A member of the RNA family "ylbH leader" from Caldibacillus debilis, 115 nucleotides long. The match comes from Rfam's covariance-model search (87 bits). For this family Rfam cites "New RNA motifs suggest an expanded scope for riboswitches in bacterial genetic control" (Barrick et al., Proc Natl Acad Sci U S A, 2004). The pairing is the family consensus, mapped onto this sequence. By type it is a cis-regulatory leader. About the family: This family is a putative regulatory RNA structure that is found upstream of the ylbH gene in B. subtilis and related low GC Gram-positive bacteria.
RNA sequence: AAAAAAUAAACCCUGCAUUUCGCUGCAGGGUCCCUUCAGGCCGAUGAGCCCGAAGGCAAAGGGAGAGGAGAAACCGGAGGAAGAACUUAUGGGGAUCGUUAAGUCUUCUCCGCGG
Numbered sequence: 001a002a003a004a005a006a007u008a009a010a011c012c013c014u015g016c017a018u019u020u021c022g023c024u025g026c027a028g029g030g031u032c033c034c035u036u037c038a039g040g041c042c043g044a045u046g047a048g049c050c051c052g053a054a055g056g057c058a059a060a061g062g063g064a065g066a067g068g069a070g071a072a073a074c075c076g077g078a079g080g081a082a083g084a085a086c087u088u089a090u091g092g093g094g095a096u097c098g099u100u101a102a103g104u105c106u107u108c109u110c111c112g113c114g115g
Stems, first nucleotide, its partner, number of pairs: 011030007031063003035059001037052001039050003075112004080108004085104005